[Rfam]
RNA sequence: CUUGAUCGAUCCCAGACGCAGCGGCUCUUCGCGGUCCUGGCCGUAGGUGGCCAGCAGCGCGUUGGCCUC
Numbered sequence: 001c002u003u004g005a006u007c008g009a010u011c012c013c014a015g016a017c018g019c020a021g022c023g024g025c026u027c028u029u030c031g032c033g034g035u036c037c038u039g040g041c042c043g044u045a046g047g048u049g050g051c052c053a054g055c056a057g058c059g060c061g062u063u064g065g066c067c068u069c
Base pairs, nucleotide, nucleotide: 014026015025017023032059033058037054038053039052041050042049043048